[Rfam]
RNA sequence: GUCAGGAACCCACGACUAAAGUCGAUGGUUUGCAAGCCCUAACCUGACCAGCCUCAGCUGAAAGCCUCUCAGGUCUUUCAGCUACGUUACCGGCGAAUACAUAGGUACCCUGGAGUGCAUUUCCCAGCCCCAGGCUCUACGGGCAACCAUUAAACAGACGUAAGGGGUUAAGUCGGUGCGGUUGCCGACAAACCGUUGGAUAACAUUGGCGAGGGAAACAUCAC
Numbered sequence: 001g002u003c004a005g006g007a008a009c010c011c012a013c014g015a016c017u018a019a020a021g022u023c024g025a026u027g028g029u030u031u032g033c034a035a036g037c038c039c040u041a042a043c044c045u046g047a048c049c050a051g052c053c054u055c056a057g058c059u060g061a062a063a064g065c066c067u068c069u070c071a072g073g074u075c076u077u078u079c080a081g082c083u084a085c086g087u088u089a090c091c092g093g094c095g096a097a098u099a100c101a102u103a104g105g106u107a108c109c110c111u112g113g114a115g116u117g118c119a120u121u122u123c124c125c126a127g128c129c130c131c132a133g134g135c136u137c138u139a140c141g142g143g144c145a146a147c148c149a150u151u152a153a154a155c156a157g158a159c160g161u162a163a164g165g166g167g168u169u170a171a172g173u174c175g176g177u178g179c180g181g182u183u184g185c186c187g188a189c190a191a192a193c194c195g196u197u198g199g200a201u202a203a204c205a206u207u208g209g210c211g212a213g214g215g216a217a218a219c220a221u222c223a224c
Stems, first nucleotide, its partner, number of pairs: 001048006010028002013024001015022002029036002051210003056083009086204004091199001096197003105140002109134005115128002120217003124214002142186007150178001154177002157174003161170003
RNA: HNH endonuclease-associated RNA and ORF (HEARO) RNA
Organism: Geoalkalibacter subterraneus